[Rfam]
RNA sequence: GCAGUAGGCCGGUUUGUCGCUGACUACCUUCGGGUAGAAAGAGGAAAGUCCGGGCAACACAGGGCAUCGUACUUCUUAAUGGGAAGCUGUUCGUGAGGGCAGAGUUAAGGUAACAGAGAAUAACCGCCUCCGUAAGGAGGUAAGGGUGAAAAGGCGAGGUAAGAGCUCACCGCCUGUGCAGUAAUGUAUCGGGGCCGUACCACUUGCGAGUUGUAAGACCAUGUAUACCGGCGUAUGUAGGGCUGCCCGCCCGAUGCCGGGGGGUAGGUCGCUAGAGCCUGUCGGUGACGGCAGGAGUAGAUAAAUGACAGACACCUUGCUAUAGUAAGGAACAGAACCCGGCUUACAGGCUUACUGCAUUU
Numbered sequence: 001g002c003a004g005u006a007g008g009c010c011g012g013u014u015u016g017u018c019g020c021u022g023a024c025u026a027c028c029u030u031c032g033g034g035u036a037g038a039a040a041g042a043g044g045a046a047a048g049u050c051c052g053g054g055c056a057a058c059a060c061a062g063g064g065c066a067u068c069g070u071a072c073u074u075c076u077u078a079a080u081g082g083g084a085a086g087c088u089g090u091u092c093g094u095g096a097g098g099g100c101a102g103a104g105u106u107a108a109g110g111u112a113a114c115a116g117a118g119a120a121u122a123a124c125c126g127c128c129u130c131c132g133u134a135a136g137g138a139g140g141u142a143a144g145g146g147u148g149a150a151a152a153g154g155c156g157a158g159g160u161a162a163g164a165g166c167u168c169a170c171c172g173c174c175u176g177u178g179c180a181g182u183a184a185u186g187u188a189u190c191g192g193g194g195c196c197g198u199a200c201c202a203c204u205u206g207c208g209a210g211u212u213g214u215a216a217g218a219c220c221a222u223g224u225a226u227a228c229c230g231g232c233g234u235a236u237g238u239a240g241g242g243c244u245g246c247c248c249g250c251c252c253g254a255u256g257c258c259g260g261g262g263g264g265u266a267g268g269u270c271g272c273u274a275g276a277g278c279c280u281g282u283c284g285g286u287g288a289c290g291g292c293a294g295g296a297g298u299a300g301a302u303a304a305a306u307g308a309c310a311g312a313c314a315c316c317u318u319g320c321u322a323u324a325g326u327a328a329g330g331a332a333c334a335g336a337a338c339c340c341g342g343c344u345u346a347c348a349g350g351c352u353u354a355c356u357g358c359a360u361u362u
Stems, first nucleotide, its partner, number of pairs: 001358010011347001012313007020041002024037005046345003050342005055213004062248004067209005072086005087102001089100004103204002109201004124145002126141006153171002156168003172195001173193004178187003217270004228260005240252004278295007
This 362-nucleotide sequence from Dysgonomonas sp. Marseille-P4677 belongs to the Rfam family "Bacterial RNase P class A". The family's RNA type in Rfam is ribozyme. The match comes from Rfam's covariance-model search (248 bits).